[Rfam]
RNA sequence: AGCCUCACUCUACAUGAAAAUGCUCACAAGUGAUGAUGGUGUCCAGAAAUUGUCAAUGUGGUUAAAUUAAGACAGGUUUUGUUUCCAUCACAGUAAAUUAAUUGUAGUGGUGACAGUGAGACCUCUAACACAC
Numbered sequence: 001a002g003c004c005u006c007a008c009u010c011u012a013c014a015u016g017a018a019a020a021u022g023c024u025c026a027c028a029a030g031u032g033a034u035g036a037u038g039g040u041g042u043c044c045a046g047a048a049a050u051u052g053u054c055a056a057u058g059u060g061g062u063u064a065a066a067u068u069a070a071g072a073c074a075g076g077u078u079u080u081g082u083u084u085c086c087a088u089c090a091c092a093g094u095a096a097a098u099u100a101a102u103u104g105u106a107g108u109g110g111u112g113a114c115a116g117u118g119a120g121a122c123c124u125c126u127a128a129c130a131c132a133c
Base pairs, nucleotide, nucleotide: 002062003061004060006058007057021045022044025041026040027039072126074124075123076122086112087111088110089109090108091107
RNA: Small nucleolar RNA SNORA1